[Rfam]
RNA: Small nucleolar RNA SNORD71
Organism: Microtus ochrogaster
RNA sequence: UAGAUCAUUAGAAGAUGAAAAAUAGGGAUGAUCUUUGGCUAAACAUCACAUCACAAAGCUGACACUUAAGCUGCUGACAGAAUUUU
Numbered sequence: 001u002a003g004a005u006c007a008u009u010a011g012a013a014g015a016u017g018a019a020a021a022a023u024a025g026g027g028a029u030g031a032u033c034u035u036u037g038g039c040u041a042a043a044c045a046u047c048a049c050a051u052c053a054c055a056a057a058g059c060u061g062a063c064a065c066u067u068a069a070g071c072u073g074c075u076g077a078c079a080g081a082a083u084u085u086u
Stems, first nucleotide, its partner, number of pairs: 002085004008080002010075002013034004018029001035062005